[Rfam]
RNA sequence: CGUGAUAUCGGCGUUAGUGAAUCUAUUAUUCCACUAUUCCAAAGUUCUUUUGGUUGGAGUGUUAUCAUGUCUCUAAGUGUUGAAGAAAAAAAGAACAUUAUUGCUAAUUUUGGUCGUGAUACC
Numbered sequence: 001c002g003u004g005a006u007a008u009c010g011g012c013g014u015u016a017g018u019g020a021a022u023c024u025a026u027u028a029u030u031c032c033a034c035u036a037u038u039c040c041a042a043a044g045u046u047c048u049u050u051u052g053g054u055u056g057g058a059g060u061g062u063u064a065u066c067a068u069g070u071c072u073c074u075a076a077g078u079g080u081u082g083a084a085g086a087a088a089a090a091a092a093g094a095a096c097a098u099u100a101u102u103g104c105u106a107a108u109u110u111u112g113g114u115c116g117u118g119a120u121a122c123c
Stems, first nucleotide, its partner, number of pairs: 007026002010023002047077003056074004

Notes
Rfam assigns this 123-nucleotide RNA from Candidatus Moranella endobia to the family "Ribosomal S15 leader". Gene Ontology term of the family: regulation of translation, ncRNA-mediated. The E. coli Ribosomal S15 gene 5' UTR can form two alternative structures. One that is a series of three hairpins, The other includes a pseudoknot. This structure causes translational regulation of the S15 protein. The family is grouped with related families in Rfam's "Ribosomal Protein S15 Leader clan". It is annotated as a cis-regulatory leader.